[Rfam]
Nucleotides: 114
Base pairs, nucleotide, nucleotide: 003037005035006034007033008032014029015028016027017026018025042071043070044069046067047066048065049062050061051060052059053058078109080107083104084103085102086101087100089098090097091096
Number, partner (000 for none) and nucleotide at each position: 001000a002000a003037u004000a005035c006034c007033u008032u009000u010000a011000a012000g013000g014029u015028a016027g017026u018025c019000c020000a021000g022000a023000g024000a025018g026017a027016c028015u029014a030000g031000u032008a033007a034006g035005g036000a037003a038000u039000u040000c041000a042071u043070a044069a045000a046067a047066u048065a049062g050061g051060a052059c053058g054000g055000g056000u057000a058053u059052g060051u061050c062049c063000u064000c065048u066047a067046u068000a069044u070043u071042a072000u073000g074000a075000a076000g077000a078109a079000c080107a081000c082000u083104u084103u085102c086101u087100a088000u089098g090097u091096c092000u093000u094000u095000c096091g097090a098089c099000u100087u101086a102085g103084a104083a105000u106000u107080u108000u109078u110000u111000u112000a113000u114000a
A member of the RNA family "PyrR binding site" from Candidatus Xianfuyuplasma coldseepsis, 114 nucleotides long.
Taxonomically the source falls in Candidatus Xianfuyuplasma (Bacteria, Bacillati, Mycoplasmatota, Mollicutes).